The family of this 45-nucleotide RNA sequence from Chitinimonas arctica is "Guanidine-II riboswitch aptamer (mini-ykkC)".
Pairs were carried over by alignment from the consensus structure, which is taken from published work.
Rfam links the family to the GO term regulation of gene expression.
NCBI's taxonomy places the organism under Bacteria, Pseudomonadota, Betaproteobacteria, Chitinibacteraceae, Chitinimonas.
Nucleotides: 045
Base pairs, nucleotide, nucleotide: 001020004017005016006015007014008013034045035044036043037042
Number, partner (000 for none) and nucleotide at each position: 001020c002000u003000c004017g005016g006015a007014g008013g009000a010000c011000g012000a013008c014007c015006u016005c017004c018000c019000c020001g021000c022000c023000g024000c025000g026000a027000a028000u029000c030000c031000a032000c033000a034045g035044g036043g037042g038000a039000c040000g041000g042037c043036c044035c045034c